[Rfam]
RNA sequence: GGCGGGUCUCCUCGCAUUGUUAGGUCGUGAACCGGGUCAGGUCCGGAAGGAAGCAGCCCCAGCGACUGAGGCAAGUGCCGGGGGUCGGGCUCGCCACC
Dot-bracket structure: ...((((((((((((.(((((.((((((.....((((....(((....)))....))))..))))))..))))))...))))))...)))))......

The family of this 98-nucleotide RNA from Fluviibacter phosphoraccumulans is "Bacterial small signal recognition particle RNA". Its family is annotated with signal recognition particle, plasma membrane targeting and SRP-dependent cotranslational protein targeting to membrane, signal sequence recognition in the Gene Ontology. For this family Rfam cites "SRPDB: Signal Recognition Particle Database" (Rosenblad et al., Nucleic Acids Res, 2003). It is annotated as a non-coding RNA gene. Rfam's curators write: The signal recognition particle (SRP) is a universally conserved ribonucleoprotein involved in the co-translational targeting of proteins to membranes.